[Rfam]
RNA sequence: AUCACCUGGAGAUCUUGCUAAACUGCAGAUUCUGAUUCAGUGGGCCUGGGGUGGAACCCGAGAUUCUGCAUUUCUAACAAGCUACCAGGUGAUCUGAU
Numbered sequence: 001a002u003c004a005c006c007u008g009g010a011g012a013u014c015u016u017g018c019u020a021a022a023c024u025g026c027a028g029a030u031u032c033u034g035a036u037u038c039a040g041u042g043g044g045c046c047u048g049g050g051g052u053g054g055a056a057c058c059c060g061a062g063a064u065u066c067u068g069c070a071u072u073u074c075u076a077a078c079a080a081g082c083u084a085c086c087a088g089g090u091g092a093u094c095u096g097a098u
Stems, first nucleotide, its partner, number of pairs: 003091003009085001011083001014081004019076002021073002025069005031063003